[Rfam]
Record summary
Rfam assigns this 116-nucleotide RNA from Nakamurella aerolata to the family "SAM (S-adenosyl methionine) riboswitch aptamer". Clan: SAM clan. NCBI's taxonomy places the organism under Bacteria, Bacillati, Actinomycetota, Nakamurellaceae, Nakamurella. Its family is annotated with regulation of gene expression and S-adenosylmethionine metabolic process in the Gene Ontology. Pairs were carried over by alignment from the consensus structure, which is taken from published work.

RNA sequence: GGUCAUGAGUUCCAGCGCACAGCCCCGGCUAGCUGGACGGCAACCCUCCCUCGCGGCGGGGUGCUCCGGGUGAAGACCUGGCAUCGCGGUCGAACGACACGAUGCAAGCGCGAGCU
Number, nucleotide and partner (000 for none) at each position: 001g078002g077003u076004c075005a000006u000007g000008a000009g038010u000011u037012c036013c035014a034015g033016c032017g000018c000019a000020c000021a030022g029023c000024c000025c000026c000027g000028g000029c022030u021031a000032g016033c015034u014035g013036g012037a011038c009039g065040g064041c063042a000043a000044c061045c060046c059047u000048c056049c055050c000051u000052c000053g000054c000055g049056g048057c000058g000059g046060g045061g044062u000063g041064c040065u039066c000067c000068g000069g000070g000071u000072g000073a000074a000075g004076a003077c002078c001079u000080g000081g105082c104083a103084u102085c101086g100087c000088g000089g098090u097091c096092g000093a000094a000095c000096g091097a090098c089099a000100c086101g085102a084103u083104g082105c081106a000107a000108g000109c000110g000111c000112g000113a000114g000115c000116u000